[Rfam]
RNA: Small nucleolar RNA SNORD11B
RNA sequence: UCUGGUCAGUGAUGAUGCUGAUACCUAAUUGCCUGAUAAAACUAUGAGGGCAAUUUUAGUCACUACCUCAUCUGAGACCACU
Numbered sequence: 001u002c003u004g005g006u007c008a009g010u011g012a013u014g015a016u017g018c019u020g021a022u023a024c025c026u027a028a029u030u031g032c033c034u035g036a037u038a039a040a041a042c043u044a045u046g047a048g049g050g051c052a053a054u055u056u057u058a059g060u061c062a063c064u065a066c067c068u069c070a071u072c073u074g075a076g077a078c079c080a081c082u
Base pairs, nucleotide, nucleotide: 003080004079005078006077007076
Dot-bracket structure: ..(((((....................................................................)))))..